Overview: The family of this 349-nucleotide RNA sequence is "GEBRO RNA". The sequence is in the family's curated seed alignment. The base pairs follow the family's consensus structure, which is taken from published work.
RNA sequence: AGUCAACUUUUUAUCAGAGAAGUUUUUUUGAGGGCUAGCAUGAAUAUUUUAUUUGAGAUAGCGCACUCCAUCCCUUCAAGAGAAGGGAGACCCAAGCGCUCGCAGAUCGUCGACGGUUCAGAUGUGACGAUAGGCGAAAGUAGGUAAAGAGACACCCCAAGACCUUCAUAAUGAACCCCUCUAAAGGGUUCGGGCUAAGUCCGUUUAGGAUAUGUCACAACGGGGCAAGGUUGGCUGAUAGCGACACGUAGAGGACACGGAUAAGACCUGAAAAGGUAGCAAGUAGGGCGUGCAGACGCUUGUAAAAAGUCCGUUUGAGAUUUGCAAUAGUCUCAGAGUAAUCUGAACC
Numbered sequence: 001a002g003u004c005a006a007c008u009u010u011u012u013a014u015c016a017g018a019g020a021a022g023u024u025u026u027u028u029u030g031a032g033g034g035c036u037a038g039c040a041u042g043a044a045u046a047u048u049u050u051a052u053u054u055g056a057g058a059u060a061g062c063g064c065a066c067u068c069c070a071u072c073c074c075u076u077c078a079a080g081a082g083a084a085g086g087g088a089g090a091c092c093c094a095a096g097c098g099c100u101c102g103c104a105g106a107u108c109g110u111c112g113a114c115g116g117u118u119c120a121g122a123u124g125u126g127a128c129g130a131u132a133g134g135c136g137a138a139a140g141u142a143g144g145u146a147a148a149g150a151g152a153c154a155c156c157c158c159a160a161g162a163c164c165u166u167c168a169u170a171a172u173g174a175a176c177c178c179c180u181c182u183a184a185a186g187g188g189u190u191c192g193g194g195c196u197a198a199g200u201c202c203g204u205u206u207a208g209g210a211u212a213u214g215u216c217a218c219a220a221c222g223g224g225g226c227a228a229g230g231u232u233g234g235c236u237g238a239u240a241g242c243g244a245c246a247c248g249u250a251g252a253g254g255a256c257a258c259g260g261a262u263a264a265g266a267c268c269u270g271a272a273a274a275g276g277u278a279g280c281a282a283g284u285a286g287g288g289c290g291u292g293c294a295g296a297c298g299c300u301u302g303u304a305a306a307a308a309g310u311c312c313g314u315u316u317g318a319g320a321u322u323u324g325c326a327a328u329a330g331u332c333u334c335a336g337a338g339u340a341a342u343c344u345g346a347a348c349c
Base pairs, nucleotide, nucleotide: 007022008021009020010019011018012017060100061099062098063097064096071088072087073086074085106131107130108129109128110127111126115349116348117347118346119345120344121343122342123341155225156224157223158222173191174190175189176188177187178186193216194215195214199211200210201209202208257314258313259312260311261310262309266277267276268275269274279303280302281301282300283299284298315336316335317334318333319332320331321330